Source information: Shown here is a 121-nucleotide RNA sequence from Streptacidiphilus pinicola, a member of the family "Streptomyces-metH RNA".
[Rfam]
RNA sequence: ACAUCCCACCUGGCGGAAUCCGGGGGAGCCCGCAGGGGGUCCUGCAAUACGCUGGGCCUCGUGCGCCCGCGACCGUGCGGGCGCAAAGCCGACAGCCGUCGCACACAGGGAGCCCACCAUG
Numbered sequence: 001a002c003a004u005c006c007c008a009c010c011u012g013g014c015g016g017a018a019u020c021c022g023g024g025g026g027a028g029c030c031c032g033c034a035g036g037g038g039g040u041c042c043u044g045c046a047a048u049a050c051g052c053u054g055g056g057c058c059u060c061g062u063g064c065g066c067c068c069g070c071g072a073c074c075g076u077g078c079g080g081g082c083g084c085a086a087a088g089c090c091g092a093c094a095g096c097c098g099u100c101g102c103a104c105a106c107a108g109g110g111a112g113c114c115c116a117c118c119a120u121g
Stems, first nucleotide, its partner, number of pairs: 062085004067080004088102002091100003
Dot-bracket structure: .............................................................((((.((((......)))).))))..((.(((....)))))...................
It is annotated as a small RNA.